Notes: This 114-nucleotide RNA sequence from Austrofundulus limnaeus belongs to the Rfam family "Potassium channel RNA editing signal". The family's consensus secondary structure is taken from published work. NCBI's taxonomy places the organism under Eukaryota, Eumetazoa, Bilateria, Deuterostomia, Austrofundulus.
[Rfam]
RNA sequence: UUUAGGUAUGGAGACAUGGUUCCAAAGACAAUUGCUGGGAAGAUCUUUGGCUCCAUCUGCUCCCUGAGCGGCGUGCUGGUGAUUGCGCUGCCUGUUCCCGUCAUCGUGUCUAAC
Number, nucleotide and partner (000 for none) at each position: 001u000002u113003u000004a111005g110006g000007u108008a107009u106010g105011g104012a000013g102014a101015c100016a000017u000018g097019g096020u000021u094022c000023c000024a000025a000026a000027g000028a000029c000030a000031a000032u000033u000034g000035c000036u000037g077038g076039g000040a074041a000042g000043a000044u000045c000046u000047u000048u000049g063050g062051c000052u000053c000054c000055a000056u000057c000058u000059g000060c000061u000062c050063c049064c000065u000066g000067a000068g000069c000070g000071g000072c000073g000074u040075g000076c038077u037078g000079g000080u000081g000082a000083u000084u000085g000086c000087g000088c000089u000090g000091c000092c000093u000094g021095u000096u019097c018098c000099c000100g015101u014102c013103a000104u011105c010106g009107u008108g007109u000110c005111u004112a000113a002114c000